Shown here is an 80-nucleotide RNA sequence from Alicyclobacillus sp. SO9, a member of the family "ZMP/ZTP riboswitch aptamer (pfl RNA motif)". Pairs were carried over by alignment from the consensus structure, which is taken from published work. It scores 60 bits against the family's covariance model.
RNA sequence: CAUCGAUUGUAUGACUGGCGGAUACGUGGAUAACCACGAGGAAGUACAAUCGUUAACAGCCGACCGCCUGGGUGACCAAA
Numbered sequence: 001c002a003u004c005g006a007u008u009g010u011a012u013g014a015c016u017g018g019c020g021g022a023u024a025c026g027u028g029g030a031u032a033a034c035c036a037c038g039a040g041g042a043a044g045u046a047c048a049a050u051c052g053u054u055a056a057c058a059g060c061c062g063a064c065c066g067c068c069u070g071g072g073u074g075a076c077c078a079a080a
Base pairs, nucleotide, nucleotide: 004052005051006050007049008048009047010046011045012044015041016040017068018067019066020065021064026037027036028035029034059073060072061071
The organism belongs to Alicyclobacillus, within Bacteria.